[Rfam]
RNA sequence: GCUCUGUGAUGAACCCAUGCGUGUCAUCUGAGCCCGGCUUCCCUGUCCCCUCAGCCCUGGGGGGUGUUCUGCUUCCCAGGGCUGCCAGCGGGCCCAGCGUGGGAGUCGUGGGCAAAGGAUCAGCCUUCGUCUUCUGAGAGU
Numbered sequence: 001g002c003u004c005u006g007u008g009a010u011g012a013a014c015c016c017a018u019g020c021g022u023g024u025c026a027u028c029u030g031a032g033c034c035c036g037g038c039u040u041c042c043c044u045g046u047c048c049c050c051u052c053a054g055c056c057c058u059g060g061g062g063g064g065u066g067u068u069c070u071g072c073u074u075c076c077c078a079g080g081g082c083u084g085c086c087a088g089c090g091g092g093c094c095c096a097g098c099g100u101g102g103g104a105g106u107c108g109u110g111g112g113c114a115a116a117g118g119a120u121c122a123g124c125c126u127u128c129g130u131c132u133u134c135u136g137a138g139a140g141u
Stems, first nucleotide, its partner, number of pairs: 001141004041103003044099003